[Rfam]
Description: Rfam assigns this 80-nucleotide RNA sequence from Polypterus senegalus to the family "mir-16 microRNA precursor family". The base pairs follow the family's consensus structure, which was predicted with PFOLD. The source organism's lineage runs through Eukaryota, Vertebrata, Teleostomi, Polypteridae and Polypterus. It scores 38 bits against the family's covariance model.

RNA sequence: AUAUUGAUUUAGCAGCACAUGCAACAUGGACACUGGUGAAAGCACUUCAGUUUAUGUUACAUGUGCUGCUAAAUCAAUAU
Numbered sequence: 001a002u003a004u005u006g007a008u009u010u011a012g013c014a015g016c017a018c019a020u021g022c023a024a025c026a027u028g029g030a031c032a033c034u035g036g037u038g039a040a041a042g043c044a045c046u047u048c049a050g051u052u053u054a055u056g057u058u059a060c061a062u063g064u065g066c067u068g069c070u071a072a073a074u075c076a077a078u079a080u
Stems, first nucleotide, its partner, number of pairs: 001080003005076003010073001011070008021060001023058008